[Rfam]
RNA sequence: CUGUGACUGCGCGACUGGCGAGGGUGGGUCACCACCGGGGAGUGCUGUCAGCGGGAGCAUCGUCCGCCUGGGUGCUCCUC
Numbered sequence: 001c002u003g004u005g006a007c008u009g010c011g012c013g014a015c016u017g018g019c020g021a022g023g024g025u026g027g028g029u030c031a032c033c034a035c036c037g038g039g040g041a042g043u044g045c046u047g048u049c050a051g052c053g054g055g056a057g058c059a060u061c062g063u064c065c066g067c068c069u070g071g072g073u074g075c076u077c078c079u080c
Base pairs, nucleotide, nucleotide: 004050005049006048007047009045010044011043012042015039016038017068018067019066020065024035025034026033027032057075058074059073060072061071
RNA: ZMP/ZTP riboswitch aptamer (pfl RNA motif)